RNA: Eukaryotic large subunit ribosomal RNA, nucleotides 435 to 931
RNA sequence: CCUAAGAAACCCAAAAGAUCGAACGGGGAGAUUCAUCGUCAGCGGCGCUGGCUUCGCGUCGGUGGGCGAUGUCCCGCGGAGUCCUCGCGGCUCGCGCGCGGGCACGCUACCGUGCGUUGAUGUCCGGCUGUCGUCGUCGUGCACUUCUCCCCAAGUAGAACGUCGCGACCCGCUGGGUGUCGGUCUACGGCCCGGGUGCGGUGACUGUCGCGUCGCCGGUAAAACGGCACGCGACAAACCCUCGGUCGCCCGGCCGGCUGCUCGGCGGUACGCGCAAGGUAUCAGGCCGCACUUCUACACGGUGCGUCGAGGCCGUCGCAAGCGCGCGCCACGGUACUCGGAGGUUACGGACUUUGCGCCGUCCCCGGUCCUGGCCCGCUGUUGGUUAAAGUACGGAUCACCUUCGACAGGCCUGCGAACGUCUCUCUCACGGGGGACGGAUACCGGUCGGCGACGCUACUGCUUUGGGUACUCUUAGGACCCGUCUUGAAACACGG
Dot-bracket structure: (((((((.(((((((................................................................................................................................................................................................................................................................................................................................................................................................................................................................)))))))..)))))))..((((........))))